[Rfam]
RNA sequence: GCCGGUCCUCGGUAGUGGCUUCCGGAGCGAGGUUCUCGCUCCGUGGGCCUCGAUCGAAGACCGGG
Numbered sequence: 001g002c003c004g005g006u007c008c009u010c011g012g013u014a015g016u017g018g019c020u021u022c023c024g025g026a027g028c029g030a031g032g033u034u035c036u037c038g039c040u041c042c043g044u045g046g047g048c049c050u051c052g053a054u055c056g057a058a059g060a061c062c063g064g065g
Stems, first nucleotide, its partner, number of pairs: 002064006009057005017049005023043009
RNA: Actino-pnp RNA
Organism: Angustibacter sp. Root456